[Rfam]
Description:
A member of the RNA family "RAGATH-15 RNA", 291 nucleotides long. For this family Rfam cites "New classes of self-cleaving ribozymes revealed by comparative genomics analysis" (Weinberg et al., Nat Chem Biol, 2015). Pairs were carried over by alignment from the consensus structure, which is taken from published work. It is one of the family's seed sequences.
Nucleotides: 291
Base pairs, nucleotide, nucleotide: 001013002012003011017038018037019036020035021034022033039056040055041054042053043052044051045050067096068095069094071092072091073090074089075088076087077086101217102216103215104214105129106128107127108126109125110124111123112122134177135176136175137174142169143168144167150163151162182213183212184211185210186209187208188207189206229242230241231240244265245264246263247262248261249260250259271284272283273282274281
Number, partner (000 for none) and nucleotide at each position: 001013a002012g003011g004000g005000u006000g007000g008000c009000u010000a011003c012002c013001u014000u015000a016000u017038u018037c019036u020035u021034g022033g023000c024000u025000a026000a027000g028000g029000c030000a031000a032000a033022c034021c035020a036019a037018g038017a039056g040055u041054a042053u043052a044051c045050u046000u047000a048000c049000c050045a051044g052043u053042a054041u055040a056039c057000a058000g059000c060000c061000a062000a063000c064000c065000a066000c067096a068095u069094a070000u071092u072091a073090u074089a075088c076087a077086u078000a079000a080000u081000g082000c083000a084000c085000u086077a087076u088075g089074u090073a091072u092071a093000u094069u095068a096067u097000g098000g099000a100000u101217a102216g103215g104214a105129c106128a107127c108126u109125g110124g111123c112122u113000a114000a115000c116000a117000g118000c119000u120000g121000a122112a123111g124110u125109u126108g127107g128106u129105g130000c131000a132000a133000a134177a135176c136175u137174a138000c139000a140000a141000u142169u143168u144167c145000c146000a147000u148000a149000c150163g151162u152000g153000g154000a155000u156000a157000a158000c159000g160000a161000a162151a163150c164000g165000u166000c167144g168143a169142a170000a171000g172000a173000g174137u175136a176135g177134u178000u179000a180000g181000a182213u183212u184211u185210a186209a187208a188207c189206g190000g191000c192000u193000g194000g195000a196000a197000a198000c199000a200000c201000a202000c203000a204000a205000a206189u207188g208187u209186u210185u211184g212183a213182a214104u215103u216102c217101u218000c219000a220000c221000a222000u223000u224000g225000g226000a227000a228000u229242c230241c231240u232000g233000g234000u235000g236000u237000u238000u239000a240231a241230g242229g243000u244265a245264u246263a247262c248261u249260g250259a251000a252000g253000u254000g255000c256000a257000a258000a259250u260249c261248a262247g263246u264245a265244u266000u267000u268000a269000u270000u271284g272283c273282u274281c275000c276000c277000a278000u279000a280000g281274g282273a283272g284271c285000u286000g287000u288000u289000g290000g291000g